[Rfam]
RNA sequence: GACGGUUCGUGCGACUGGCGUAAACGGAGAGACCACUCCGGGGGAGCGCGAACCGGGGCUUUUGCCGAACGCCUGGGCAUCUUUU
Numbered sequence: 001g002a003c004g005g006u007u008c009g010u011g012c013g014a015c016u017g018g019c020g021u022a023a024a025c026g027g028a029g030a031g032a033c034c035a036c037u038c039c040g041g042g043g044g045a046g047c048g049c050g051a052a053c054c055g056g057g058g059c060u061u062u063u064g065c066c067g068a069a070c071g072c073c074u075g076g077g078c079a080u081c082u083u084u085u
Stems, first nucleotide, its partner, number of pairs: 003055010015043002017073005026039004063079004